The record is a 103-nucleotide RNA sequence from Mongoliitalea lutea, which matches "Group II catalytic intron D1-D4-1" in Rfam. For this family Rfam cites "The ins and outs of group II introns" (Bonen and Vogel, Trends Genet, 2001). Lineage of the source: Bacteria > Pseudomonadati > Cytophagia > Cytophagales > Mongoliitalea. Rfam's curators write: Group II introns are found in rRNA, tRNA and mRNA of organelles in fungi, plants and protists, and also in mRNA in bacteria. The pairing is the family consensus, mapped onto this sequence. It scores 41 bits against the family's covariance model.
[Rfam]
RNA sequence: GUCUCUGGGUGUCGGGAACACCAAAGAGAAGUCAGCCGAAGUCGUAGUAGUCGCCGGUAACGAGCUGUAAGAGCUACAGAGGUCUCACUGGGCAGCGAAGGAC
Numbered sequence: 001g002u003c004u005c006u007g008g009g010u011g012u013c014g015g016g017a018a019c020a021c022c023a024a025a026g027a028g029a030a031g032u033c034a035g036c037c038g039a040a041g042u043c044g045u046a047g048u049a050g051u052c053g054c055c056g057g058u059a060a061c062g063a064g065c066u067g068u069a070a071g072a073g074c075u076a077c078a079g080a081g082g083u084c085u086c087a088c089u090g091g092g093c094a095g096c097g098a099a100g101g102a103c
Base pairs, nucleotide, nucleotide: 001019002018004017005016006015008013032039033038041103042102043101050096051095053093054092055091